[Rfam]
The family of this 57-nucleotide sequence from Galeopsis tetrahit is "Plastid-rps18 3UTR RNA". It is annotated as a cis-regulatory element. The organism belongs to Galeopsis, within Eukaryota. Pairs were carried over by alignment from the consensus structure, which was predicted with LocARNA. Rfam describes the family as follows. Plastid rps18 is a non-coding RNA (ncRNA) present in plastids. It was identified as a short stem-loop motif in the 3 prime untranslate region (3UTR) of rps18 gene. The sequence is in the family's curated seed alignment. Rfam 15.1 lists 1,462 matches to the family in 409 species.
RNA sequence: GGCCAAUAUUUUACGAUUAAGAAGCAACUGCUUCUUGUAUAGAUUAUGUAUAAAUUU
Numbered sequence: 001g002g003c004c005a006a007u008a009u010u011u012u013a014c015g016a017u018u019a020a021g022a023a024g025c026a027a028c029u030g031c032u033u034c035u036u037g038u039a040u041a042g043a044u045u046a047u048g049u050a051u052a053a054a055u056u057u
Base pairs, nucleotide, nucleotide: 018037019036020035021034022033023032024031025030